[Rfam]
RNA sequence: GGCGAUAAACGGUGCAUCCACUAGGCGUAGCGGACCCGGGGGCAGUACCCGGCGCCUCCACCAACACGCCGGAGAUGCCCGGACGCGCGCAAGGCGCGGCGUCCGGCCACUCCGGCACCCUAUGGGGGCGAACCAGGAUCGACGCGCGUUGAAAGGUGUACUUUUCGCCCGGCAUGGUACCGCCGUUAUCGGGCCUUUUCAGAAGUGCGAACGACAAUCGCGCUCCGGUUGCUGCGGCUGCGUAA
Number, nucleotide and partner (000 for none) at each position: 001g169002g168003c167004g166005a165006u000007a000008a000009a000010c000011g000012g000013u000014g159015c158016a157017u156018c000019c000020a000021c000022u000023a000024g000025g000026c148027g147028u146029a000030g145031c144032g143033g000034a000035c000036c052037c051038g050039g049040g048041g000042g000043c000044a000045g000046u000047a000048c040049c039050c038051g037052g036053c130054g129055c128056c127057u126058c125059c124060a000061c000062c000063a000064a000065c000066a000067c000068g000069c000070c000071g000072g000073a000074g000075a000076u000077g000078c000079c000080c000081g000082g000083a000084c000085g000086c000087g000088c000089g000090c000091a000092a000093g000094g000095c000096g000097c000098g000099g000100c000101g000102u000103c000104c000105g000106g000107c000108c000109a000110c000111u000112c000113c000114g000115g000116c000117a000118c000119c000120c000121u000122a000123u000124g059125g058126g057127g056128g055129c054130g053131a000132a000133c000134c000135a000136g000137g000138a000139u000140c000141g000142a000143c032144g031145c030146g028147c027148g026149u000150u000151g000152a000153a000154a000155g000156g017157u016158g015159u014160a000161c000162u000163u000164u000165u005166c004167g003168c002169c001170c185171g184172g183173c182174a000175u000176g000177g000178u000179a000180c000181c000182g173183c172184c171185g170186u000187u000188a000189u000190c000191g000192g000193g000194c000195c000196u000197u000198u000199u000200c000201a000202g000203a000204a000205g000206u000207g000208c000209g000210a000211a000212c000213g000214a000215c000216a000217a000218u000219c000220g000221c000222g000223c000224u000225c000226c000227g000228g000229u000230u000231g000232c000233u000234g000235c000236g000237g000238c000239u000240g000241c000242g000243u000244a000245a000
The family of this 245-nucleotide RNA sequence from Ferruginivarius sediminum is "permuted transfer-messenger RNA". A search with the family's covariance model found it, with a score of 134 bits. Bacterial tmRNA, also known as 10Sa RNA or SsrA, is named for its dual tRNA and mRNA-like properties. Its role is to liberate the mRNA from a stalled ribosome. To accomplish this part of the tmRNA is used as a reading frame that ends in a translation stop signal.